[Rfam]
RNA sequence: GGUGAUAAACGCGCACGGAAUAAGCGGAUCGGACCCGGGGGCGGUACCCGGCGGCUCCACCAGACAUCCCUCGUUGGGGGCGAAUGGGGCCGAAACAGGAUCGACGGACGUGUAAAGGUGUUUGCUUUCACUCGGCAGGAUGCCACCGUUAUCGGCUCAAAGCGUAUAGUUGCCAACGACAACCACGCUCCGGUGGCCGUUGCCGCGUAA
Dot-bracket structure: (((((.......((((........((..(((...(((((.......)))))(((((((...........................)))))))............))).)).......))))......)))))(((..........)))..............................................................
RNA: permuted transfer-messenger RNA